This 147-nucleotide RNA sequence from Massilia eurypsychrophila belongs to the Rfam family "Group II catalytic intron D1-D4-7".
Group II introns are found in rRNA, tRNA and mRNA of organelles in fungi, plants and protists, and also in mRNA in bacteria.
For this family Rfam cites "The ins and outs of group II introns" (Bonen and Vogel, Trends Genet, 2001).
The organism belongs to Massilia, within Bacteria.
[Rfam]
RNA sequence: CCGAACGUACGACCGUUCGUCACCUAAUUCGGACAUGCGUCACUGGCAACGGUGGGGUGUGAAGCUCCGAUAAUACCCCCACCUCGGUGGCGUCGUUCCCACGCGAGUGGAACGGCGGAAACUGCUAGCAGAAAGGCGGUGGAGGGA
Dot-bracket structure: .((((((......)))))).........((((((((((.((((((....)))))).)))))....)))))........((((....))))((((......((....)).....))))...((((((........)))))).......